[Rfam]
RNA sequence: UUCUUCUGAGGGCAAACCUGUCGAAAGGCAGGGACGCAAAGCCACCGGCCUACAGCACGCAAGUGCCACGGCAGCGGGGUUGCCAGC
Numbered sequence: 001u002u003c004u005u006c007u008g009a010g011g012g013c014a015a016a017c018c019u020g021u022c023g024a025a026a027g028g029c030a031g032g033g034a035c036g037c038a039a040a041g042c043c044a045c046c047g048g049c050c051u052a053c054a055g056c057a058c059g060c061a062a063g064u065g066c067c068a069c070g071g072c073a074g075c076g077g078g079g080u081u082g083c084c085a086g087c
Base pairs, nucleotide, nucleotide: 012037013036017032018031019030020029021028022027040081041080042079043078045077046076047075048072049071050070055066056065057064058063
The record is an 87-nucleotide RNA from beta proteobacterium AAP65, which matches "c-di-GMP-I riboswitch aptamer" in Rfam. It scores 84 bits against the family's covariance model. On this family, see Weinberg et al., Nucleic Acids Res 2007: "Identification of 22 candidate structured RNAs in bacteria using the CMfinder comparative genomics pipeline". The organism belongs to Betaproteobacteria, within Bacteria.